[Rfam]
RNA sequence: GGAGGGAUGGCUGAGUCCGGUUUAAGGCACACGAUUCGAAAUCGUGCGUGGCAGGAAUGUCACCGAGGGUUCGAAUCCCUCUCCCUCUG
Numbered sequence: 001g002g003a004g005g006g007a008u009g010g011c012u013g014a015g016u017c018c019g020g021u022u023u024a025a026g027g028c029a030c031a032c033g034a035u036u037c038g039a040a041a042u043c044g045u046g047c048g049u050g051g052c053a054g055g056a057a058u059g060u061c062a063c064c065g066a067g068g069g070u071u072c073g074a075a076u077c078c079c080u081c082u083c084c085c086u087c088u089g
Stems, first nucleotide, its partner, number of pairs: 001088007010028003030046005065081005
Dot-bracket structure: (((((((..(((.............))).(((((.......)))))..................(((((.......)))))))))))).

Notes:
Rfam assigns this 89-nucleotide RNA sequence from Roseibacillus ishigakijimensis to the family "tRNA". The family's RNA type in Rfam is transfer RNA. NCBI's taxonomy places the organism under Bacteria, Verrucomicrobiota, Verrucomicrobiia, Verrucomicrobiales, Roseibacillus. A search with the family's covariance model found it, with a score of 52 bits.